[Rfam]
A member of the RNA family "FMN riboswitch aptamer (RFN element)" from Oceanirhabdus seepicola, 129 nucleotides long. The match comes from Rfam's covariance-model search (125 bits). Pairs were carried over by alignment from the consensus structure, which is taken from published work.
RNA sequence: UAGUACCUUCAGGGCAGGGUGUAAUUCCCUACCGGCGGUAAAGUCAUGUGACUAAGCCCGCGAGCUGGCAACAGCUGAUCUGGUGUAAUUCCAGAGCCGACAGUAUAGUCUGGAUGAGAGAAGGAAGUA
Numbered sequence: 001u002a003g004u005a006c007c008u009u010c011a012g013g014g015c016a017g018g019g020u021g022u023a024a025u026u027c028c029c030u031a032c033c034g035g036c037g038g039u040a041a042a043g044u045c046a047u048g049u050g051a052c053u054a055a056g057c058c059c060g061c062g063a064g065c066u067g068g069c070a071a072c073a074g075c076u077g078a079u080c081u082g083g084u085g086u087a088a089u090u091c092c093a094g095a096g097c098c099g100a101c102a103g104u105a106u107a108g109u110c111u112g113g114a115u116g117a118g119a120g121a122a123g124g125a126a127g128u129a
Stems, first nucleotide, its partner, number of pairs: 004126001006124005017029003031109002033099002035061004056097002064075003079095005101112003